[Rfam]
RNA sequence: GACCGGAAAGAGGGCAAUAUGUUGGCAUAGCAGGUUCUGAGCUCAUCAGCUAUGCCAACAUCUUGCCUCCCCUCCAUCUC
Number, nucleotide and partner (000 for none) at each position: 001g000002a000003c000004c000005g075006g074007a073008a000009a000010g070011a000012g068013g067014g066015c065016a064017a063018u000019a061020u060021g059022u000023u057024g056025g055026c054027a053028u052029a051030g050031c049032a000033g000034g000035u000036u000037c000038u000039g000040a000041g000042c000043u000044c000045a000046u000047c000048a000049g031050c030051u029052a028053u027054g026055c025056c024057a023058a000059c021060a020061u019062c000063u017064u016065g015066c014067c013068u012069c000070c010071c000072c000073u007074c006075c005076a000077u000078c000079u000080c000
Shown here is an 80-nucleotide RNA from Phrynocephalus forsythii, a member of the family "mir-31 microRNA precursor family". Clan: mir-31 microRNA precursor family. A search with the family's covariance model found it, with a score of 54 bits. On this family, see Aravin et al., Dev Cell 2003: "The small RNA profile during Drosophila melanogaster development".